[Rfam]
RNA sequence: CAGGCAUGCUGGAGCCCCGCAGCGGCGCCUGGGCGUGCGCUGGCACAGACACCUGCCGCCCGACACCGUAGUUCCAAUCGGGGCUUAA
Numbered sequence: 001c002a003g004g005c006a007u008g009c010u011g012g013a014g015c016c017c018c019g020c021a022g023c024g025g026c027g028c029c030u031g032g033g034c035g036u037g038c039g040c041u042g043g044c045a046c047a048g049a050c051a052c053c054u055g056c057c058g059c060c061c062g063a064c065a066c067c068g069u070a071g072u073u074c075c076a077a078u079c080g081g082g083g084c085u086u087a088a
Stems, first nucleotide, its partner, number of pairs: 012086008023068003030062005
RNA: ybhL leader
Organism: Ensifer fredii